[Rfam]
The family of this 85-nucleotide RNA sequence from Hylemonella gracilis is "c-di-GMP-I riboswitch aptamer". The base pairs follow the family's consensus structure, which is taken from published work. GEMM was predicted in a large-scale screen for bacterial structured RNA regulatory elements. The source organism's lineage runs through Bacteria, Pseudomonadati, Betaproteobacteria, Burkholderiales and Hylemonella gracilis.
RNA sequence: CAUGAGGCAAGGCACACCUGCGCGAAAGCCAGGGUCGCAAAGCUACCGGUCUACGUCCAGACGACACGACAGCGGGGUUGCCAGA
Dot-bracket structure: ...........((...((((.((....))))))...))..((((.((((((....((.....))...)))..)))))))......
Rfam links the family to the GO term cyclic-di-GMP binding.